[Rfam]
Rfam assigns this 207-nucleotide RNA sequence to the family "ilvB-OMG RNA". By type it is a cis-regulatory element. It is one of the family's seed sequences.
RNA sequence: GUCACGCGAGCGGCAACGGCUAUUGGUGAGUACCCUCAUCCUCUGGCCUACCUCUGGAACGGGAUAGUUUCACAGGCUGUUUGCGGGUUCCGUCAGGCGAGGCAUGGCCUCUCCCACUCGGGCUCGACACUGCGUUACCCCGCAGGUCACCGAUACACGGUUUUCGUGAUCGCGAUCUGGUGGGAAGCUGGAGCGAUCCGGCCAGUG
Numbered sequence: 001g002u003c004a005c006g007c008g009a010g011c012g013g014c015a016a017c018g019g020c021u022a023u024u025g026g027u028g029a030g031u032a033c034c035c036u037c038a039u040c041c042u043c044u045g046g047c048c049u050a051c052c053u054c055u056g057g058a059a060c061g062g063g064a065u066a067g068u069u070u071c072a073c074a075g076g077c078u079g080u081u082u083g084c085g086g087g088u089u090c091c092g093u094c095a096g097g098c099g100a101g102g103c104a105u106g107g108c109c110u111c112u113c114c115c116a117c118u119c120g121g122g123c124u125c126g127a128c129a130c131u132g133c134g135u136u137a138c139c140c141c142g143c144a145g146g147u148c149a150c151c152g153a154u155a156c157a158c159g160g161u162u163u164u165c166g167u168g169a170u171c172g173c174g175a176u177c178u179g180g181u182g183g184g185a186a187g188c189u190g191g192a193g194c195g196a197u198c199c200g201g202c203c204a205g206u207g
Stems, first nucleotide, its partner, number of pairs: 018048005025040006051076003055072006085125004090121003096115002099111004143179006151172004156168004188201005